[Rfam]
RNA sequence: UAACAAUGUUGGCAAACCUAUCGAAAGUUAGGGACGCAAAGCUAUGGGUCUACAGUCGAAUAACGACCAAGAUCGCCAGGCCGCCAUG
Number, nucleotide and partner (000 for none) at each position: 001u000002a000003a000004c000005a000006a000007u000008g000009u000010u000011g000012g037013c036014a000015a000016a000017c032018c031019u030020a029021u000022c027023g000024a000025a000026a000027g022028u000029u020030a019031g018032g017033g000034a000035c000036g013037c012038a000039a000040a000041g081042c080043u079044a000045u078046g077047g076048g073049u072050c071051u000052a000053c000054a000055g067056u066057c065058g064059a000060a000061u000062a000063a000064c058065g057066a056067c055068c000069a000070a000071g050072a049073u048074c000075g000076c047077c046078a045079g043080g042081c041082c000083g000084c000085c000086a000087u000088g000